[Rfam]
RNA sequence: CACAUGCGAUGACGCAGAAGGUUGCUGAAAUACAACGUUUCAGGUAAUUUCUGCAGAGUAUGUCCUGUUUAGAAAACAGGGCGACCG
Numbered sequence: 001c002a003c004a005u006g007c008g009a010u011g012a013c014g015c016a017g018a019a020g021g022u023u024g025c026u027g028a029a030a031u032a033c034a035a036c037g038u039u040u041c042a043g044g045u046a047a048u049u050u051c052u053g054c055a056g057a058g059u060a061u062g063u064c065c066u067g068u069u070u071a072g073a074a075a076a077c078a079g080g081g082c083g084a085c086c087g
Stems, first nucleotide, its partner, number of pairs: 014054003019050003025043007062085003067082004
A member of the RNA family "S10-Clostridia ribosomal protein leader" from Sedimentibacter saalensis, 87 nucleotides long. By type it is a cis-regulatory leader. It scores 39 bits against the family's covariance model. Lineage of the source: Bacteria > Bacillati > Bacillota > Tissierellia > Sedimentibacter. On this family, see Eckert and Weinberg, BMC Microbiol 2020: "Discovery of 20 novel ribosomal leader candidates in bacteria and archaea".